Annotation: This 83-nucleotide RNA sequence from Delftia acidovorans belongs to the Rfam family "Pseudomonas sRNA P9". This small RNA (sRNA) was computationally identified in the genome of the opportunistic pathogen Pseudomonas aeruginosa and its expression verified by northern blot analysis. P9 appears to be conserved in several Pseudomonas species in addition to Bordetella spp. In both Pseudomonas and Bordetella spp P9 appears to be located upstream of a predicted threonine dehydratase gene. P9 has a predicted Rho independent terminator at the 3' end but the function of P9 is unknown. Taxonomically the source falls in Delftia acidovorans (Bacteria, Betaproteobacteria, Burkholderiales, Delftia). Rfam classes the family as a non-coding RNA gene.
[Rfam]
RNA sequence: CAGAUUAUUCGCACCAUCCAUUGGAUGGUGGGUUAGCCAGCGGCCUUCAGCGCCAUGCAACCCGCCCAGAGGAGGCGGGUUUU
Numbered sequence: 001c002a003g004a005u006u007a008u009u010c011g012c013a014c015c016a017u018c019c020a021u022u023g024g025a026u027g028g029u030g031g032g033u034u035a036g037c038c039a040g041c042g043g044c045c046u047u048c049a050g051c052g053c054c055a056u057g058c059a060a061c062c063c064g065c066c067c068a069g070a071g072g073a074g075g076c077g078g079g080u081u082u083u
Base pairs, nucleotide, nucleotide: 012030013029014028015027016026017025059081060080061079062078063077064076065075066074